The record is a 100-nucleotide RNA sequence from Camellia sinensis, which matches "Small nucleolar RNA snoR109" in Rfam. Rfam links the family to the GO terms nucleolus and RNA processing. The family's consensus secondary structure was predicted with WAR.

RNA sequence: UGGUGGUAGCUAUAUAGAUCUAUGUAUCAUAGAAGAGAAUUUUACUGGCCGGUUGUUGUUUAUUUCCGUCAACAUAUCUGCUUACGAGCUUCUCACAUCU
Numbered sequence: 001u002g003g004u005g006g007u008a009g010c011u012a013u014a015u016a017g018a019u020c021u022a023u024g025u026a027u028c029a030u031a032g033a034a035g036a037g038a039a040u041u042u043u044a045c046u047g048g049c050c051g052g053u054u055g056u057u058g059u060u061u062a063u064u065u066c067c068g069u070c071a072a073c074a075u076a077u078c079u080g081c082u083u084a085c086g087a088g089c090u091u092c093u094c095a096c097a098u099c100u
Stems, first nucleotide, its partner, number of pairs: 035094005041088002047082003051078003055073004